[Rfam]
RNA sequence: GGCUUUCUGAAUCCUUGCUGGGAUUUCGUCAGACACUGACCCGCUAGAGGGUGAUGAGGCUCCCAAGAUAAGUGAAGUG
Numbered sequence: 001g002g003c004u005u006u007c008u009g010a011a012u013c014c015u016u017g018c019u020g021g022g023a024u025u026u027c028g029u030c031a032g033a034c035a036c037u038g039a040c041c042c043g044c045u046a047g048a049g050g051g052u053g054a055u056g057a058g059g060c061u062c063c064c065a066a067g068a069u070a071a072g073u074g075a076a077g078u079g
Base pairs, nucleotide, nucleotide: 002078003077004076005075006074008072011069012068013067016065017064020062021061022060024059025058026057027056028055029054030053

Rfam assigns this 79-nucleotide sequence from Schistosoma japonicum to the family "mir-3492 microRNA precursor family". Rfam 15.1 lists 21,496 matches to the family in 13 species. Gene Ontology terms of the family: miRNA-mediated post-transcriptional gene silencing and RISC complex.